[Rfam]
RNA sequence: UUCGACAGAUUGCCUAAUUCUGCCGCCGUCGUAAGGUCCGUUCGCACACAUCAGGCAGAAGCGGGGGAACCAGUAGUAGUGGUCGUCGCCAGACGACCUAGGGGUGAAGGCGCACAGCGCCCGGGUGGCUCCCAUCCGAAUCCGACAGCUAACUUCGCAGGCAUUGGGAGAGGCAAC
Dot-bracket structure: ..........((((...(((((((.............................)))))))((((((....(.............................)(((.....((((...))))..((((.......))))...))).........)))))).))))..............
c-di-AMP riboswitch aptamer (ydaO/yuaA leader): a 177-nucleotide RNA from Arthrobacter sp. Bz4. The match comes from Rfam's covariance-model search (70 bits). Gene Ontology terms of the family: cyclic-di-AMP binding and regulation of gene expression.